[Rfam]
This 98-nucleotide sequence from Oceanobacillus piezotolerans belongs to the Rfam family "Purine riboswitch aptamer". Rfam links the family to the GO term purine nucleobase biosynthetic process. It scores 43 bits against the family's covariance model. The organism belongs to Oceanobacillus, within Bacteria.
RNA sequence: UUAGAUUUAUAUAAGAUACAUCGUCUAAUACUGGGGUAUGGCCUAGGAGAUUCUUCUAAGCUGUAAAAGGCUUGACUACGAGGUAAGUGUGAAGUGAA
Numbered sequence: 001u002u003a004g005a006u007u008u009a010u011a012u013a014a015g016a017u018a019c020a021u022c023g024u025c026u027a028a029u030a031c032u033g034g035g036g037u038a039u040g041g042c043c044u045a046g047g048a049g050a051u052u053c054u055u056c057u058a059a060g061c062u063g064u065a066a067a068a069g070g071c072u073u074g075a076c077u078a079c080g081a082g083g084u085a086a087g088u089g090u091g092a093a094g095u096g097a098a
Stems, first nucleotide, its partner, number of pairs: 018084002021081004029048001031046005057074006